Shown here is a 47-nucleotide RNA sequence from Culex flavivirus, a member of the family "Insect-Specific Flavivirus 3' UTR repeats Rb". From the family's description: 3' UTRs in insect specific flavivirus families present three to four repeats of conserved element Rb. It is annotated as a cis-regulatory element. The sequence is in the family's curated seed alignment.
[Rfam]
RNA sequence: CCCCAGUCCGACAGGUCAUGGCAUGACCCCAUGGUGCUGAGAGGGCA
Numbered sequence: 001c002c003c004c005a006g007u008c009c010g011a012c013a014g015g016u017c018a019u020g021g022c023a024u025g026a027c028c029c030c031a032u033g034g035u036g037c038u039g040a041g042a043g044g045g046c047a
Stems, first nucleotide, its partner, number of pairs: 001045003004039004008034002014028005